A member of the RNA family "RNase MRP" from Babesia ovata, 238 nucleotides long. Pairs were carried over by alignment from the consensus structure, which is taken from published work.
[Rfam]
RNA sequence: GAUACGGUCGCGAAGCUACUUCGUAGUGAACAUACGGGAAUAUCCUGCAAACUAUGGGGAAAGUCUCCGCGCUAGAAAUGCCGAAAGGGCACAAGGGAAAUCCAUAGCGGUUGGGGCGUCCGUCUUAUUGCUUGACGGAUGCCGCUGCCUUUUUCGCCGUUUGGUUUCGCCAAGCAUCCGAAAGUCAAUGUAGCUGGCGCUUUGCGCUCACCCAAUGGAGCUUAUCUGCGUACCGUAU
Numbered sequence: 001g002a003u004a005c006g007g008u009c010g011c012g013a014a015g016c017u018a019c020u021u022c023g024u025a026g027u028g029a030a031c032a033u034a035c036g037g038g039a040a041u042a043u044c045c046u047g048c049a050a051a052c053u054a055u056g057g058g059g060a061a062a063g064u065c066u067c068c069g070c071g072c073u074a075g076a077a078a079u080g081c082c083g084a085a086a087g088g089g090c091a092c093a094a095g096g097g098a099a100a101u102c103c104a105u106a107g108c109g110g111u112u113g114g115g116g117c118g119u120c121c122g123u124c125u126u127a128u129u130g131c132u133u134g135a136c137g138g139a140u141g142c143c144g145c146u147g148c149c150u151u152u153u154u155c156g157c158c159g160u161u162u163g164g165u166u167u168c169g170c171c172a173a174g175c176a177u178c179c180g181a182a183a184g185u186c187a188a189u190g191u192a193g194c195u196g197g198c199g200c201u202u203u204g205c206g207c208u209c210a211c212c213c214a215a216u217g218g219a220g221c222u223u224a225u226c227u228g229c230g231u232a233c234c235g236u237a238u
Base pairs, nucleotide, nucleotide: 002238003237004236005235006234007233008232009230010229011228014195015194016193017192018191019190021057022056023055024054025053026052027051037045038044039043061223062222063221065220066219067218068217079091080090081089082088092107094105096103097102109149110148111147115143116142117141118140119139120138121137122136123135124134197207198206199205200204